This 171-nucleotide sequence from Rarobacter faecitabidus belongs to the Rfam family "c-di-AMP riboswitch aptamer (ydaO/yuaA leader)".
RNA sequence: CAAGCCCAGCCGCCGCGGCGCGAGAAAUUUAACCUCGGCUGGGACGGGGGAACCACCAUUCGAUGGGCGCGUGAGUGCCCUUCUUGGGGUGAAGCCGCGUGUGCAAACACCGGCCGGGCAAUCUCCGCCCGAACCCGACAGCUCACCUCGGCGGCGCAGGAGACCAUUAGU
Numbered sequence: 001c002a003a004g005c006c007c008a009g010c011c012g013c014c015g016c017g018g019c020g021c022g023a024g025a026a027a028u029u030u031a032a033c034c035u036c037g038g039c040u041g042g043g044a045c046g047g048g049g050g051a052a053c054c055a056c057c058a059u060u061c062g063a064u065g066g067g068c069g070c071g072u073g074a075g076u077g078c079c080c081u082u083c084u085u086g087g088g089g090u091g092a093a094g095c096c097g098c099g100u101g102u103g104c105a106a107a108c109a110c111c112g113g114c115c116g117g118g119c120a121a122u123c124u125c126c127g128c129c130c131g132a133a134c135c136c137g138a139c140a141g142c143u144c145a146c147c148u149c150g151g152c153g154g155c156g157c158a159g160g161a162g163a164c165c166a167u168u169a170g171u
Stems, first nucleotide, its partner, number of pairs: 001153001005043008045150005054086002087136003095113003116130004